This 76-nucleotide sequence from Drosophila gunungcola belongs to the Rfam family "Small nucleolar RNA CD11". Rfam 15.1 lists 53 matches to the family in 25 species. By type it is a C/D-box small nucleolar RNA. Gene Ontology terms of the family: nucleolus and RNA processing. The source organism's lineage runs through Eukaryota, Arthropoda, Endopterygota, Drosophila and elegans subgroup (in: flies).

RNA sequence: UUAUUCUUUCAUGAUGAAUGAUUUGAGCAGAAGAGUUCUUGAAGACUAUAUUCAUCACCCAAGACUGAAUAUAACG
Dot-bracket structure: .((..........................(((...)))...............................)).....
Numbered sequence: 001u002u003a004u005u006c007u008u009u010c011a012u013g014a015u016g017a018a019u020g021a022u023u024u025g026a027g028c029a030g031a032a033g034a035g036u037u038c039u040u041g042a043a044g045a046c047u048a049u050a051u052u053c054a055u056c057a058c059c060c061a062a063g064a065c066u067g068a069a070u071a072u073a074a075c076g
Stems, first nucleotide, its partner, number of pairs: 002071002030038003